RNA: Rhizobiales sRNA Atu_C8
Organism: Pseudorhizobium pelagicum
RNA sequence: GAACAUUGCAAACGCACUUAUCGUGGUGGGAACGCGCAUGGGCAGGAUGGAUUGACCAUCCGGCGUUAGCCACCCAUGCGCGGAAAGACAGGCUCCUCAAGGGGCCUUUUUUUAUGCCCGAA
Numbered sequence: 001g002a003a004c005a006u007u008g009c010a011a012a013c014g015c016a017c018u019u020a021u022c023g024u025g026g027u028g029g030g031a032a033c034g035c036g037c038a039u040g041g042g043c044a045g046g047a048u049g050g051a052u053u054g055a056c057c058a059u060c061c062g063g064c065g066u067u068a069g070c071c072a073c074c075c076a077u078g079c080g081c082g083g084a085a086a087g088a089c090a091g092g093c094u095c096c097u098c099a100a101g102g103g104g105c106c107u108u109u110u111u112u113u114a115u116g117c118c119c120g121a122a
Stems, first nucleotide, its partner, number of pairs: 007028001009026001029118002032115001033082010045061006063070002087108001090107007